Rfam assigns this 80-nucleotide sequence from Myotis lucifugus to the family "mir-574 microRNA precursor family". The family is grouped with related families in Rfam's "mir-574 microRNA precursor clan". Taxonomically the source falls in Myotis (Eukaryota, Vertebrata, Teleostomi, Amniota). On this family, see Lui et al., Cancer Res 2007: "Patterns of known and novel small RNAs in human cervical cancer".

RNA sequence: CGGCCUGGAGAGAGAAGCAGGGUCUGAUCAGUGCCUCCAUGGCAGCUGUUGAUCAGCCCUUGCCUCUUUCUCUCUCUCCA
Numbered sequence: 001c002g003g004c005c006u007g008g009a010g011a012g013a014g015a016a017g018c019a020g021g022g023u024c025u026g027a028u029c030a031g032u033g034c035c036u037c038c039a040u041g042g043c044a045g046c047u048g049u050u051g052a053u054c055a056g057c058c059c060u061u062g063c064c065u066c067u068u069u070c071u072c073u074c075u076c077u078c079c080a
Base pairs, nucleotide, nucleotide: 008072009071010070011069012068013067014066015065017063018062019061020060022058024056025055026054027053028052029051032048033046034045
Its family is annotated with miRNA-mediated post-transcriptional gene silencing and RISC complex in the Gene Ontology.
Pairs were carried over by alignment from the consensus structure, which was predicted with RNAalifold.